A member of the RNA family "RNase MRP" from Muraenolepis orangiensis, 257 nucleotides long.
Rfam describes the family as follows. RNase MRP is an enzymatically active ribonucleoprotein with two distinct roles in eukaryotes. In mitochondria it plays a direct role in the initiation of mitochondrial DNA replication. In the nucleus it is involved in precursor rRNA processing, where it cleaves the internal transcribed spacer 1 between 18S and 5.8S rRNAs. Despite distinct functions, RNase MRP has been shown to be evolutionarily related to RNase P. Like eukaryotic RNase P, RNase MRP is not catalytically active without associated protein subunits.
RNA sequence: GGGCAUUCGGAAGGCUUGCACUCUGGGCUACUCACUGAGGACGCUGUUCCUCCACCGCCGCCCAGGGGAAAGUCCCCGGACCCCGAGCAGAAAGUGCUUCGUGUCGGCCUUGCGCUCCACCAGCCUCGUAAGCUGAGACGUUGACUCCAACUGAGCUUGGGUGAAUCGUAAGCCGAACUUGUCCAUGUGAUAGAAAUGCAAGUAGGCGGACUACUACGUACUGCAUCUAACAGAACGGGGCUCAUUCUCUGAAUGCU
Numbered sequence: 001g002g003g004c005a006u007u008c009g010g011a012a013g014g015c016u017u018g019c020a021c022u023c024u025g026g027g028c029u030a031c032u033c034a035c036u037g038a039g040g041a042c043g044c045u046g047u048u049c050c051u052c053c054a055c056c057g058c059c060g061c062c063c064a065g066g067g068g069a070a071a072g073u074c075c076c077c078g079g080a081c082c083c084c085g086a087g088c089a090g091a092a093a094g095u096g097c098u099u100c101g102u103g104u105c106g107g108c109c110u111u112g113c114g115c116u117c118c119a120c121c122a123g124c125c126u127c128g129u130a131a132g133c134u135g136a137g138a139c140g141u142u143g144a145c146u147c148c149a150a151c152u153g154a155g156c157u158u159g160g161g162u163g164a165a166u167c168g169u170a171a172g173c174c175g176a177a178c179u180u181g182u183c184c185a186u187g188u189g190a191u192a193g194a195a196a197u198g199c200a201a202g203u204a205g206g207c208g209g210a211c212u213a214c215u216a217c218g219u220a221c222u223g224c225a226u227c228u229a230a231c232a233g234a235a236c237g238g239g240g241c242u243c244a245u246u247c248u249c250u251g252a253a254u255g256c257u
Base pairs, nucleotide, nucleotide: 002257003256004255005254006253007252008251009250010249011248014203015202016201017200018199019198022066023065024064025063026062027061028060037052038051039050040049041048071242072241074240075239076238077237086098087097088096089095104175106173109172110171111170112169113168114167118163119162120161121160130158131157132156133155140151141150142149143148205227206226208224210222

The family's RNA type in Rfam is ribozyme. Taxonomically the source falls in Muraenolepis (Eukaryota, Teleostomi, Teleostei, Acanthomorphata). The base pairs follow the family's consensus structure, which is taken from published work.